About this RNA
Small nucleolar RNA Z103: a 103-nucleotide sequence from Vanilla planifolia. NCBI's taxonomy places the organism under Eukaryota, Tracheophyta, Euphyllophyta, Vanilleae, Vanilla. The family's RNA type in Rfam is C/D-box small nucleolar RNA. A search with the family's covariance model found it, with a score of 68 bits. Gene Ontology terms of the family: nucleolus and RNA processing. A reference for the family is Chen et al. (2003), "The high diversity of snoRNAs in plants: identification and comparative study of 120 snoRNA genes from Oryza sativa", Nucleic Acids Res.

RNA sequence: AUGGAGAUGAUGAUCGUUUCCCCAAAAGAUCGACUGUGGUUAGAAUGUGCACUUUCAUUAUGUUUCUCAAAAGCGAGAAACCAAGCCAUUGGAUCUGAUCCUU
Numbered sequence: 001a002u003g004g005a006g007a008u009g010a011u012g013a014u015c016g017u018u019u020c021c022c023c024a025a026a027a028g029a030u031c032g033a034c035u036g037u038g039g040u041u042a043g044a045a046u047g048u049g050c051a052c053u054u055u056c057a058u059u060a061u062g063u064u065u066c067u068c069a070a071a072a073g074c075g076a077g078a079a080a081c082c083a084a085g086c087c088a089u090u091g092g093a094u095c096u097g098a099u100c101c102u103u
Stems, first nucleotide, its partner, number of pairs: 001103001003101003